[Rfam]
RNA sequence: ACACAAGGAAGGAGGUGGUCCGAAGUUGUAUAGCUGCAGGACUUGUGAGGUGGCUGUCCGCUAGGACCUGGCCUUUCCCAGGCGACGGUGGUCCUGGUGAAUACCAGGCGGCCACCCGGCCCCCGUGAUCCCGAGCUCAGUCCAGCUCGGCCCGCCGCGAGGCGGGAAGUGAUCCGGGGGCCGUUCUAC
Numbered sequence: 001a002c003a004c005a006a007g008g009a010a011g012g013a014g015g016u017g018g019u020c021c022g023a024a025g026u027u028g029u030a031u032a033g034c035u036g037c038a039g040g041a042c043u044u045g046u047g048a049g050g051u052g053g054c055u056g057u058c059c060g061c062u063a064g065g066a067c068c069u070g071g072c073c074u075u076u077c078c079c080a081g082g083c084g085a086c087g088g089u090g091g092u093c094c095u096g097g098u099g100a101a102u103a104c105c106a107g108g109c110g111g112c113c114a115c116c117c118g119g120c121c122c123c124c125g126u127g128a129u130c131c132c133g134a135g136c137u138c139a140g141u142c143c144a145g146c147u148c149g150g151c152c153c154g155c156c157g158c159g160a161g162g163c164g165g166g167a168a169g170u171g172a173u174c175c176g177g178g179g180g181c182c183g184u185u186c187u188a189c
Base pairs, nucleotide, nucleotide: 014058015057016056017055018054019053059099060098061097062096063095064094065093068091069090070089117183118182119181120180121179122178123177124176125175127173129171131150132149133148134147135146136145
Dot-bracket structure: .............((((((.................................))))))(((((((..(((..................))).))))))).................(((((((((.(.(.((((((........))))))....................).).)))))))))......

Annotation:
Actinobacteria sRNA Ms_IGR-5: a 189-nucleotide sequence from Saccharothrix coeruleofusca. The family's RNA type in Rfam is small RNA. The source organism's lineage runs through Bacteria, Bacillati, Actinomycetes, Pseudonocardiaceae and Saccharothrix.